Rfam assigns this 336-nucleotide RNA from Mesobacillus selenatarsenatis to the family "Group I catalytic intron". Rfam 15.1 lists 5,602 matches to the family in 1,395 species. Its family is annotated with Group I intron splicing in the Gene Ontology. Pairs were carried over by alignment from the consensus structure, which is taken from published work.
[Rfam]
RNA sequence: UUUUGCAACUUUUGAGAUAAUGAUUUAAGGGCGUCUUAUCUGGUAACGGGUAAGAAUAUAACUGGGUGAAUUGCUGGAACUUCCUAAAGCCUCAUCAACCACAACGUAACUGGAAACGGUCAGCGUGAGGGUCUGAAAAUGAUGGGGAUGUAACAAUGGAUAAUCAGCAGCCAAGCUCCUGUAAGGAAACUUUGGAGAAGGUUCAACGACUAGAGAACACGGUCUAAGGCAAAGCUAUGACUAUGAAUCUCGUAGGGCAGCAAAUGCUGUUCGAAGUGCCCAGCUCCAUGAAAACAUGGAUGAAGAUAUAGUCUAUUCUGUAAUCGAAAGAUGCAG
Numbered sequence: 001u002u003u004u005g006c007a008a009c010u011u012u013u014g015a016g017a018u019a020a021u022g023a024u025u026u027a028a029g030g031g032c033g034u035c036u037u038a039u040c041u042g043g044u045a046a047c048g049g050g051u052a053a054g055a056a057u058a059u060a061a062c063u064g065g066g067u068g069a070a071u072u073g074c075u076g077g078a079a080c081u082u083c084c085u086a087a088a089g090c091c092u093c094a095u096c097a098a099c100c101a102c103a104a105c106g107u108a109a110c111u112g113g114a115a116a117c118g119g120u121c122a123g124c125g126u127g128a129g130g131g132u133c134u135g136a137a138a139a140u141g142a143u144g145g146g147g148a149u150g151u152a153a154c155a156a157u158g159g160a161u162a163a164u165c166a167g168c169a170g171c172c173a174a175g176c177u178c179c180u181g182u183a184a185g186g187a188a189a190c191u192u193u194g195g196a197g198a199a200g201g202u203u204c205a206a207c208g209a210c211u212a213g214a215g216a217a218c219a220c221g222g223u224c225u226a227a228g229g230c231a232a233a234g235c236u237a238u239g240a241c242u243a244u245g246a247a248u249c250u251c252g253u254a255g256g257g258c259a260g261c262a263a264a265u266g267c268u269g270u271u272c273g274a275a276g277u278g279c280c281c282a283g284c285u286c287c288a289u290g291a292a293a294a295c296a297u298g299g300a301u302g303a304a305g306a307u308a309u310a311g312u313c314u315a316u317u318c319u320g321u322a323a324u325c326g327a328a329a330g331a332u333g334c335a336g
Base pairs, nucleotide, nucleotide: 001030002029003028004027039050040049041048062283063282064281065280067278068277072169073168074167075166076165077164082160083159084158170202171201177195178194206314208313209312210311211310212309285300286299287298288297289296290295320334321333323332324331325330
Group I catalytic introns are large self-splicing ribozymes. They catalyse their own excision from mRNA, tRNA and rRNA precursors in a wide range of organisms. The core secondary structure consists of 9 paired regions (P1-P9). These fold to essentially two domains - the P4-P6 domain (formed from the stacking of P5, P4, P6 and P6a helices) and the P3-P9 domain (formed from the P8, P3, P7 and P9 helices).